Background
Shown here is a 193-nucleotide RNA, a member of the family "permuted transfer-messenger RNA". Its family is annotated with RNA catabolic process in the Gene Ontology. For this family Rfam cites "BRUCE: a program for the detection of transfer-messenger RNA genes in nucleotide sequences" (Laslett et al., Nucleic Acids Res, 2002). A search with the family's covariance model found it, with a score of 72 bits.

RNA sequence: UGGUGUAGCUUCGGUAGAUAACUGCUUGGACAGGGAUUCGACUUCCCUCACCUCCACUUCAACUUGCUCCCUCGGGGGUGCCACGGUUUCGACAAGUAGGGGAUUUCGCCAGAGUGAAAGCUGCUUGCAUAAGCACAAAACAAACGCCAACAAAAUCGUUGCCUUUCAUCGUCAGGCAGUUUCCUGCGCCUGA
Numbered sequence: 001u002g003g004u005g006u007a008g009c010u011u012c013g014g015u016a017g018a019u020a021a022c023u024g025c026u027u028g029g030a031c032a033g034g035g036a037u038u039c040g041a042c043u044u045c046c047c048u049c050a051c052c053u054c055c056a057c058u059u060c061a062a063c064u065u066g067c068u069c070c071c072u073c074g075g076g077g078g079u080g081c082c083a084c085g086g087u088u089u090c091g092a093c094a095a096g097u098a099g100g101g102g103a104u105u106u107c108g109c110c111a112g113a114g115u116g117a118a119a120g121c122u123g124c125u126u127g128c129a130u131a132a133g134c135a136c137a138a139a140a141c142a143a144a145c146g147c148c149a150a151c152a153a154a155a156u157c158g159u160u161g162c163c164u165u166u167c168a169u170c171g172u173c174a175g176g177c178a179g180u181u182u183c184c185u186g187c188g189c190c191u192g193a
Stems, first nucleotide, its partner, number of pairs: 001111005022099003026095003032048005049080007112126004